Nucleotides: 074
Stems, first nucleotide, its partner, number of pairs: 002073006009066005017058005023052004030047003
Number, partner (000 for none) and nucleotide at each position: 001000u002073c003072c004071g005070g006069u007068c008000c009066u010065c011064g012063g013062u014000a015000g016000u017058g018057g019056u020055c021054u022000u023052c024051a025050g026049a027000a028000c029000c030047c031046g032045c033000a034000c035000c036000u037000u038000c039000g040000u041000g042000c043000g044000c045032g046031c047030g048000c049026u050025c051024u052023g053000c054021g055020g056019a057018u058017c059000u060000c061000g062013a063012u064011c065010g066009a067000a068007g069006a070005c071004c072003g073002g074000c